This 206-nucleotide RNA sequence from Anoxybacteroides amylolyticum belongs to the Rfam family "HNH endonuclease-associated RNA and ORF (HEARO) RNA". The family's consensus secondary structure is taken from published work. The source organism's lineage runs through Bacteria, Bacillati, Bacilli, Caryophanales and Anoxybacteroides. On this family, see Weinberg et al., Nature 2009: "Exceptional structured noncoding RNAs revealed by bacterial metagenome analysis".
RNA sequence: GUCAACAACCGAACGACUCAAGUCGUGGGUUUGAAUGCCCCAUGUUGACCAGACCAAGACUUGAAACAUAGUUUACGUUAGCGAUGUCAUGAUACGUCGGGGUGCUUCUCCAGCCCCGUCGUCGUGUAAGAUUAAACAAAUGUGGUAGGUCACAUUCGUGUCUUGUACACGACAAGCAUCGAUAACACGGUCAAGGAGAACAUCAC
Numbered sequence: 001g002u003c004a005a006c007a008a009c010c011g012a013a014c015g016a017c018u019c020a021a022g023u024c025g026u027g028g029g030u031u032u033g034a035a036u037g038c039c040c041c042a043u044g045u046u047g048a049c050c051a052g053a054c055c056a057a058g059a060c061u062u063g064a065a066a067c068a069u070a071g072u073u074u075a076c077g078u079u080a081g082c083g084a085u086g087u088c089a090u091g092a093u094a095c096g097u098c099g100g101g102g103u104g105c106u107u108c109u110c111c112a113g114c115c116c117c118g119u120c121g122u123c124g125u126g127u128a129a130g131a132u133u134a135a136a137c138a139a140a141u142g143u144g145g146u147a148g149g150u151c152a153c154a155u156u157c158g159u160g161u162c163u164u165g166u167a168c169a170c171g172a173c174a175a176g177c178a179u180c181g182a183u184a185a186c187a188c189g190g191u192c193a194a195g196g197a198g199a200a201c202a203u204c205a206c
Stems, first nucleotide, its partner, number of pairs: 001049007010029001013026002016023002033038001052192004057074005077186004082181006092122002096120001098118006106200006124168009136159002139156007
It is annotated as a non-coding RNA gene. The match comes from Rfam's covariance-model search (122 bits).